[Rfam]
RNA sequence: GUAGCUCUCAAACUGUGGGGGCACUUUCUGUGCUACGGAGAAAAUUGCCGCCAGGGUUUGAGUGUUAC
Dot-bracket structure: ...((.((((((...(((.((((.((((...........))).).)))).)))...)))))).))...